[Rfam]
RNA sequence: AUGGAGACAUUGCAUAAAACCAGAAAGUGAGAGACAUUAACUCCUAAGACUGUAACUUGAACUAAUUCACAUCUCAUUUU
Numbered sequence: 001a002u003g004g005a006g007a008c009a010u011u012g013c014a015u016a017a018a019a020c021c022a023g024a025a026a027g028u029g030a031g032a033g034a035c036a037u038u039a040a041c042u043c044c045u046a047a048g049a050c051u052g053u054a055a056c057u058u059g060a061a062c063u064a065a066u067u068c069a070c071a072u073c074u075c076a077u078u079u080u
Stems, first nucleotide, its partner, number of pairs: 004075004010022001012020001027070004